[Rfam]
RNA: Lysine riboswitch aptamer
Organism: Christensenella hongkongensis
RNA sequence: AGAACAGACAGAGGAGCGUUACAGUAUGAGUAUCGCGGCAUGAUAAAGUCUUUCGGCGAGACGGUUGUAUGCUGCGGGAAAGGGCUUAACGCCGAAGAAUUUUGUGCACGCCGGGCAUGAGCUUCUGGGGGUACGGUCAAUAGCCGUAUCACUGUCACCGUCAUUUGGCGGUGUUGCGCUGCUGCGACU
Numbered sequence: 001a002g003a004a005c006a007g008a009c010a011g012a013g014g015a016g017c018g019u020u021a022c023a024g025u026a027u028g029a030g031u032a033u034c035g036c037g038g039c040a041u042g043a044u045a046a047a048g049u050c051u052u053u054c055g056g057c058g059a060g061a062c063g064g065u066u067g068u069a070u071g072c073u074g075c076g077g078g079a080a081a082g083g084g085c086u087u088a089a090c091g092c093c094g095a096a097g098a099a100u101u102u103u104g105u106g107c108a109c110g111c112c113g114g115g116c117a118u119g120a121g122c123u124u125c126u127g128g129g130g131g132u133a134c135g136g137u138c139a140a141u142a143g144c145c146g147u148a149u150c151a152c153u154g155u156c157a158c159c160g161u162c163a164u165u166u167g168g169c170g171g172u173g174u175u176g177c178g179c180u181g182c183u184g185c186g187a188c189u
Base pairs, nucleotide, nucleotide: 007183009181010180011179016092017091018090019089020088021087023086024085025084033077034076035075036074037073038072039071040070041069042068096126097125098124099123101121102120103119104118105117106116107115127153128152130150131149132148133147134146135145136144137143156173157172158171159170160169161168